[Rfam]
RNA sequence: GGGCGGCUAGCUCAGCUGGUUAGAGCAUCUCGUUUACACCGAGAGGGUCUGCGGUUCGAAUCCGUAGCCGCCCA
Numbered sequence: 001g002g003g004c005g006g007c008u009a010g011c012u013c014a015g016c017u018g019g020u021u022a023g024a025g026c027a028u029c030u031c032g033u034u035u036a037c038a039c040c041g042a043g044a045g046g047g048u049c050u051g052c053g054g055u056u057c058g059a060a061u062c063c064g065u066a067g068c069c070g071c072c073c074a
Stems, first nucleotide, its partner, number of pairs: 001073007010026004028044005050066005
RNA: tRNA